[Rfam]
RNA sequence: GCAGACUCACUCUGUGCUGAACUGCAGCCUUCAGUUCAGGUGCUUUUCUGUCUGCAAGAGUAAGAGCUCACAAGAGUGACGAUGGCCUUCUUUCCUGUGGAAGGCUGUUACAGUUGCUGUUGGGACAUGGCU
Numbered sequence: 001g002c003a004g005a006c007u008c009a010c011u012c013u014g015u016g017c018u019g020a021a022c023u024g025c026a027g028c029c030u031u032c033a034g035u036u037c038a039g040g041u042g043c044u045u046u047u048c049u050g051u052c053u054g055c056a057a058g059a060g061u062a063a064g065a066g067c068u069c070a071c072a073a074g075a076g077u078g079a080c081g082a083u084g085g086c087c088u089u090c091u092u093u094c095c096u097g098u099g100g101a102a103g104g105c106u107g108u109u110a111c112a113g114u115u116g117c118u119g120u121u122g123g124g125a126c127a128u129g130g131c132u
Stems, first nucleotide, its partner, number of pairs: 001055006014043003017039004022034003067123002070120003079114002083110002087107001090104002

Record summary: The record is a 132-nucleotide RNA from Bombycilla garrulus, which matches "Small nucleolar RNA SNORA77" in Rfam. Taxonomically the source falls in Bombycilla (Eukaryota, Opisthokonta, Craniata, Dipnotetrapodomorpha). It scores 46 bits against the family's covariance model. Rfam's curators write: ACA63 (SNORA77) is a member of the H/ACA class of snoRNAs that guide the sites of modification of uridines to pseudouridines. This snoRNA was identified by computational screening and its expression in mouse experimentally verified by Northern blot and primer extension analysis. ACA63 is proposed to guide the pseudouridylation of 18S rRNA U814.